Rfam assigns this 76-nucleotide RNA sequence from Prolemur simus to the family "mir-320 microRNA precursor family". The family has 38 seed sequences and 659 matches in Rfam 15.1. Gene Ontology terms of the family: miRNA-mediated post-transcriptional gene silencing, long-term synaptic potentiation and positive regulation of stem cell proliferation. The base pairs follow the family's consensus structure, which was predicted with RNAalifold.
RNA sequence: AUACUGGAUGGCCUUCUCUUCCCAGUUCUUCCCGGAGUCGGGAAAAGCUGGGUUGAGAGGGCAGAAAAAAAAACAA
Numbered sequence: 001a002u003a004c005u006g007g008a009u010g011g012c013c014u015u016c017u018c019u020u021c022c023c024a025g026u027u028c029u030u031c032c033c034g035g036a037g038u039c040g041g042g043a044a045a046a047g048c049u050g051g052g053u054u055g056a057g058a059g060g061g062c063a064g065a066a067a068a069a070a071a072a073a074c075a076a
Base pairs, nucleotide, nucleotide: 014059015058016057017056018055021052022051023050024049025048029044030043031042032041033040034039